Shown here is an 89-nucleotide RNA sequence, a member of the family "DUF3800-VII RNA".
RNA sequence: CCAGGGUAAGCGCAGGAAAGGUAGAGGCCGCUCGUCGAGAGUGGCAGCCCAAAUGGGUGGGAUCCUCGGUUCCUGGGACCCAUAAGUUU
Numbered sequence: 001c002c003a004g005g006g007u008a009a010g011c012g013c014a015g016g017a018a019a020g021g022u023a024g025a026g027g028c029c030g031c032u033c034g035u036c037g038a039g040a041g042u043g044g045c046a047g048c049c050c051a052a053a054u055g056g057g058u059g060g061g062a063u064c065c066u067c068g069g070u071u072c073c074u075g076g077g078a079c080c081c082a083u084a085a086g087u088u089u
Stems, first nucleotide, its partner, number of pairs: 004081004011076001013075004021070002024067003027045007048057003

The base pairs follow the family's consensus structure, which is taken from published work.